HIV Ribosomal frameshift signal: a 52-nucleotide sequence from Lentivirus humimdef1. The base pairs follow the family's consensus structure, which is taken from published work. By type it is a frameshift element. For this family Rfam cites "The human immunodeficiency virus type 1 ribosomal frameshifting site is an invariant sequence determinant and an important target for antiviral therapy" (Biswas et al., J Virol, 2004). The source organism's lineage runs through Viruses, Revtraviricetes, Retroviridae, Orthoretrovirinae and Lentivirus humimdef1. Rfam links the family to the GO term viral translational frameshifting. From the family's description: This family represents the HIV Ribosomal frameshift signal. HIV uses a system called -1 ribosomal frameshifting to produce the required ratio of Gag and Gag-Pol polyproteins.
RNA sequence: UUUUUUAAGGAAAAUUUGGCCUUCCAACAAGGGGAGGCCGGGAAAUUUCCUU
Numbered sequence: 001u002u003u004u005u006u007a008a009g010g011a012a013a014a015u016u017u018g019g020c021c022u023u024c025c026a027a028c029a030a031g032g033g034g035a036g037g038c039c040g041g042g043a044a045a046u047u048u049c050c051u052u
Stems, first nucleotide, its partner, number of pairs: 008052003012048003015042011